[Rfam]
The record is a 116-nucleotide RNA sequence from Treponema parvum, which matches "TD-1 RNA" in Rfam. The match comes from Rfam's covariance-model search (68 bits). On this family, see Weinberg et al., Nucleic Acids Res 2007: "Identification of 22 candidate structured RNAs in bacteria using the CMfinder comparative genomics pipeline".

RNA sequence: AAAACACUGUCGAGUUUCGGACGGAGCCGAAACAUCGCAAAAUUGUAUGUGCGCUUUUCGCGUACCAAUGCAACAGUUUCCAAAGUUCAAACUUUGUUCAACUGUUGCAUUUGAAA
Numbered sequence: 001a002a003a004a005c006a007c008u009g010u011c012g013a014g015u016u017u018c019g020g021a022c023g024g025a026g027c028c029g030a031a032a033c034a035u036c037g038c039a040a041a042a043u044u045g046u047a048u049g050u051g052c053g054c055u056u057u058u059c060g061c062g063u064a065c066c067a068a069u070g071c072a073a074c075a076g077u078u079u080c081c082a083a084a085g086u087u088c089a090a091a092c093u094u095u096g097u098u099c100a101a102c103u104g105u106u107g108c109a110u111u112u113g114a115a116a
Stems, first nucleotide, its partner, number of pairs: 012036002014033007049065006068110011081096006